The family of this 53-nucleotide sequence from Vulpes vulpes is "Small nucleolar RNA SNORD56". The family has 7 seed sequences and 796 matches in Rfam 15.1.

[Rfam]
RNA sequence: CUGCAAUGAUGGCAGUAUGUUUCGUCAACAGAUGAUACUUUGGGUCUGAGUGA
Number, nucleotide and partner (000 for none) at each position: 001c000002u052003g051004c050005a000006a000007u000008g026009a025010u024011g023012g000013c000014a000015g000016u000017a000018u000019g000020u000021u000022u000023c011024g010025u009026c008027a000028a000029c000030a000031g000032a000033u000034g000035a000036u000037a000038c000039u000040u000041u000042g000043g000044g000045u000046c000047u000048g000049a000050g004051u003052g002053a000